Lysine riboswitch aptamer: a 172-nucleotide sequence from Parasutterella muris.
Rfam links the family to the GO term lysine biosynthetic process.
NCBI's taxonomy places the organism under Bacteria, Pseudomonadota, Betaproteobacteria, Burkholderiales, Parasutterella.
The family's consensus secondary structure is taken from published work.
A search with the family's covariance model found it, with a score of 104 bits.
[Rfam]
RNA sequence: UCCAUAGGUAGAGGUGCAGACCUUAUCAGUAACCGUUCUCAGCAUUCGAAGCAUUGGAGGACAGUAAAAGGAAGGCUUGCCGAAGGGAUUGAAAAAACUUCGAUAUUUCAACCCCUGGGCUGCAAAAGAAUAUUUUGCAGACUGUCACUGAACGUGGAGCGCUACCGUGUCU
Numbered sequence: 001u002c003c004a005u006a007g008g009u010a011g012a013g014g015u016g017c018a019g020a021c022c023u024u025a026u027c028a029g030u031a032a033c034c035g036u037u038c039u040c041a042g043c044a045u046u047c048g049a050a051g052c053a054u055u056g057g058a059g060g061a062c063a064g065u066a067a068a069a070g071g072a073a074g075g076c077u078u079g080c081c082g083a084a085g086g087g088a089u090u091g092a093a094a095a096a097a098c099u100u101c102g103a104u105a106u107u108u109c110a111a112c113c114c115c116u117g118g119g120c121u122g123c124a125a126a127a128g129a130a131u132a133u134u135u136u137g138c139a140g141a142c143u144g145u146c147a148c149u150g151a152a153c154g155u156g157g158a159g160c161g162c163u164a165c166c167g168u169g170u171c172u
Stems, first nucleotide, its partner, number of pairs: 007166005016080004021075004032065002035062005084116004089111006117143002120140008145157004